[Rfam]
RNA sequence: UCGGGACUUUUUGCGGUCUGGGCUUGCUGUCCAAUCACUAUCCAGGAAGCCCUUACCCCAAAAAGCAUCUG
Numbered sequence: 001u002c003g004g005g006a007c008u009u010u011u012u013g014c015g016g017u018c019u020g021g022g023c024u025u026g027c028u029g030u031c032c033a034a035u036c037a038c039u040a041u042c043c044a045g046g047a048a049g050c051c052c053u054u055a056c057c058c059c060a061a062a063a064a065g066c067a068u069c070u071g
Stems, first nucleotide, its partner, number of pairs: 007065007015057003020052004025047001027045002
RNA: mir-129 microRNA precursor family
Organism: Gadus morhua